[Rfam]
Nucleotides: 115
Stems, first nucleotide, its partner, number of pairs: 001015005017040005023034004045115002048091003052087001054080002057077002061073004097111002100108002
Number, partner (000 for none) and nucleotide at each position: 001015a002014a003013a004012g005011g006000u007000a008000g009000g010000c011005u012004c013003u014002u015001u016000a017040g018039a019038g020037u021036u022000g023034g024033c025032u026031u027000g028000u029000a030000g031026g032025a033024g034023c035000a036021g037020a038019c039018u040017c041000c042000a043000a044000a045115u046114c047000a048091c049090u050089a051000c052087a053000a054080g055079c056000u057077a058076u059000a060000u061073c062072u063071g064070u065000u066000a067000a068000g069000a070064g071063c072062a073061g074000a075000g076058g077057u078000a079055g080054u081000a082000a083000g084000u085000g086000c087052u088000a089050u090049a091048g092000a093000a094000a095000a096000a097111a098110u099000a100108g101107a102000g103000a104000g105000u106000a107101u108100c109000c110098a111097u112000c113000a114046g115045a
This 115-nucleotide RNA sequence from Ambispora leptoticha belongs to the Rfam family "Group II catalytic intron D1-D4-2". For this family Rfam cites "The ins and outs of group II introns" (Bonen and Vogel, Trends Genet, 2001). A search with the family's covariance model found it, with a score of 64 bits. Rfam links the family to the GO term Group II intron splicing. The pairing is the family consensus, mapped onto this sequence. The source organism's lineage runs through Eukaryota, Fungi, Glomeromycetes, Ambisporaceae and Ambispora.